RNA sequence: UAAUACUGCAGGUAGAAAUACGCUGUAUACUCGUGUAAUCGAAUUAACGUUUAAGCGAUAUGUAAUGUCGUCGAUCACGGGGGCCGCCUUCGGGCGGCUUUUUUACUUU
Numbered sequence: 001u002a003a004u005a006c007u008g009c010a011g012g013u014a015g016a017a018a019u020a021c022g023c024u025g026u027a028u029a030c031u032c033g034u035g036u037a038a039u040c041g042a043a044u045u046a047a048c049g050u051u052u053a054a055g056c057g058a059u060a061u062g063u064a065a066u067g068u069c070g071u072c073g074a075u076c077a078c079g080g081g082g083g084c085c086g087c088c089u090u091c092g093g094g095c096g097g098c099u100u101u102u103u104u105a106c107u108u109u
Base pairs, nucleotide, nucleotide: 007027008026009025010024011023012021013020014019030081031080032079033078034077035076038075039074040073041072042051043050044049055071056070057069058068059067060066082099083098084097085096086095087094088093
Notes: Shown here is a 109-nucleotide RNA, a member of the family "DUF3800-I RNA". Rfam's curators write: Actinobacteria, Firmicutes, Fusobacteria, Proteobacteria (1 example), Tenericutes (2 examples). The base pairs follow the family's consensus structure, which is taken from published work. The family's RNA type in Rfam is small RNA.